[Rfam]
RNA sequence: CAGUGCAUUGGCUACUGUAAGCCAAGGGCGGUAGCAUG
Numbered sequence: 001c002a003g004u005g006c007a008u009u010g011g012c013u014a015c016u017g018u019a020a021g022c023c024a025a026g027g028g029c030g031g032u033a034g035c036a037u038g
Stems, first nucleotide, its partner, number of pairs: 008025005

The family of this 38-nucleotide sequence from Yersinia bercovieri is "JUMPstart RNA". The family's consensus secondary structure is taken from published work. The source organism's lineage runs through Bacteria, Pseudomonadati, Pseudomonadota, Yersinia and Yersinia bercovieri.